[Rfam]
RNA sequence: CCUAUAGAGUGUUACACAAACGAAAGUAGCCUUGGUAAAAUCGGAUACUAUGAGGUAGGAA
Numbered sequence: 001c002c003u004a005u006a007g008a009g010u011g012u013u014a015c016a017c018a019a020a021c022g023a024a025a026g027u028a029g030c031c032u033u034g035g036u037a038a039a040a041u042c043g044g045a046u047a048c049u050a051u052g053a054g055g056u057a058g059g060a061a
Base pairs, nucleotide, nucleotide: 001059002058003057004056005055009048010047011046012045013044021043022042023041029036030035
RNA: RAGATH-18 RNA
Organism: Clostridium tetani